[Rfam]
RNA sequence: UAAGUAAGAGGAGACAGAGACGGGGAACAGGCUGAGCAUGGAUGGAGCUACUAAUAGAGAAUCUGUUUUUGGCUCUAUCCAUGCACUGCCUCUUCCCUGGCUAUUAUAUUCCUCUUGCU
Numbered sequence: 001u002a003a004g005u006a007a008g009a010g011g012a013g014a015c016a017g018a019g020a021c022g023g024g025g026a027a028c029a030g031g032c033u034g035a036g037c038a039u040g041g042a043u044g045g046a047g048c049u050a051c052u053a054a055u056a057g058a059g060a061a062u063c064u065g066u067u068u069u070u071g072g073c074u075c076u077a078u079c080c081a082u083g084c085a086c087u088g089c090c091u092c093u094u095c096c097c098u099g100g101c102u103a104u105u106a107u108a109u110u111c112c113u114c115u116u117g118c119u
Base pairs, nucleotide, nucleotide: 018102019101021099022098023097024096025095026094027093029091030090031089032088034086036084037083038082039081040080041079045075046074
Rfam assigns this 119-nucleotide RNA sequence from Tripterygium wilfordii to the family "MIR408 microRNA precursor family". A reference for the family is Mica et al. (2009), "High throughput approaches reveal splicing of primary microRNA transcripts and tissue specific expression of mature microRNAs in Vitis vinifera", BMC Genomics. The organism belongs to Tripterygium, within Eukaryota. Its family is annotated with miRNA-mediated post-transcriptional gene silencing and RISC complex in the Gene Ontology.